[Rfam]
RNA sequence: AUAUCUCUGUCGCUUAAUUCUAUCAUGAAGCGGGGAAACCAUUUUUGGGGUGAAUCCUUCACAUUAUUUGACUCUGAGUUUGUGAAGGUAGGGUUACUUUUCAAUCCGAAUCCGUCAGCUAACUUCGUAAGCGUUGAAAGGAGAUACU
Dot-bracket structure: ..........((((...(((......)))((((((....((....))(((.....((((((((.................))))))))..((((.........))))...))).........)))))).))))...............
A member of the RNA family "c-di-AMP riboswitch aptamer (ydaO/yuaA leader)" from Desulfosporosinus sp. HMP52, 148 nucleotides long.
NCBI's taxonomy places the organism under Bacteria, Bacillati, Bacillota, Clostridia, Desulfosporosinus.
It scores 100 bits against the family's covariance model.